[Rfam]
RNA sequence: AUGGGUGUGAUGAUUAUUUCCCCAGAUGAUCGAAACUGAACAUACUGUGCGAUUUUGUUUCUCUUUGGAGAAAUCAAGCCAAAUAAUCUGAUCCAU
Numbered sequence: 001a002u003g004g005g006u007g008u009g010a011u012g013a014u015u016a017u018u019u020c021c022c023c024a025g026a027u028g029a030u031c032g033a034a035a036c037u038g039a040a041c042a043u044a045c046u047g048u049g050c051g052a053u054u055u056u057g058u059u060u061c062u063c064u065u066u067g068g069a070g071a072a073a074u075c076a077a078g079c080c081a082a083a084u085a086a087u088c089u090g091a092u093c094c095a096u
Base pairs, nucleotide, nucleotide: 001096002095003094004093005092
The record is a 96-nucleotide RNA, which matches "Small nucleolar RNA Z103" in Rfam. The literature on the family includes a 2003 paper in Nucleic Acids Res by Chen et al., "The high diversity of snoRNAs in plants: identification and comparative study of 120 snoRNA genes from Oryza sativa".